Annotation:
Metazoan signal recognition particle RNA: a 298-nucleotide RNA sequence from Folsomia candida. By type it is a non-coding RNA gene. The family has 91 seed sequences and 383,523 matches in Rfam 15.1. The match comes from Rfam's covariance-model search (218 bits). The family's consensus secondary structure is taken from published work.
[Rfam]
RNA sequence: GCUGGGAGUUGUGGCGCACUCCUGUAAUCGAGCUACUUCGAGGCCGGUGUGUGUGGAUGGCUUGAGUCGGGGAACAACUGGGUGGUGGUUGGUUACGUUGAUUGGGGGCCCUAGCUGAGCUGCGAGUCAAUAUGGUUGCACGAGAGGAGUCUUGUGUAUCCAGGUUGGUUGAGGAUUGCCGAAUCGGGCCAGGGGUGAAAACCAGCAGCUCAAAGGCAACGCUUUCAGUAGCAGCGGGAUGACUCCUGAGAGUGCCUCCAUCAUUCAGCCUCGACAAUAUAGUCAGACCACAAACCAA
Numbered sequence: 001g002c003u004g005g006g007a008g009u010u011g012u013g014g015c016g017c018a019c020u021c022c023u024g025u026a027a028u029c030g031a032g033c034u035a036c037u038u039c040g041a042g043g044c045c046g047g048u049g050u051g052u053g054u055g056g057a058u059g060g061c062u063u064g065a066g067u068c069g070g071g072g073a074a075c076a077a078c079u080g081g082g083u084g085g086u087g088g089u090u091g092g093u094u095a096c097g098u099u100g101a102u103u104g105g106g107g108g109c110c111c112u113a114g115c116u117g118a119g120c121u122g123c124g125a126g127u128c129a130a131u132a133u134g135g136u137u138g139c140a141c142g143a144g145a146g147g148a149g150u151c152u153u154g155u156g157u158a159u160c161c162a163g164g165u166u167g168g169u170u171g172a173g174g175a176u177u178g179c180c181g182a183a184u185c186g187g188g189c190c191a192g193g194g195g196u197g198a199a200a201a202c203c204a205g206c207a208g209c210u211c212a213a214a215g216g217c218a219a220c221g222c223u224u225u226c227a228g229u230a231g232c233a234g235c236g237g238g239a240u241g242a243c244u245c246c247u248g249a250g251a252g253u254g255c256c257u258c259c260a261u262c263a264u265u266c267a268g269c270c271u272c273g274a275c276a277a278u279a280u281a282g283u284c285a286g287a288c289c290a291c292a293a294a295c296c297a298a
Stems, first nucleotide, its partner, number of pairs: 001044003004023006028041003046296003050292004058285005066275007078268011092255001094254003098250001102249007110238002114235004119229004124224004128167004133162003137158009169173001176219005186211004194203003
NCBI's taxonomy places the organism under Eukaryota, Bilateria, Arthropoda, Collembola, Folsomia.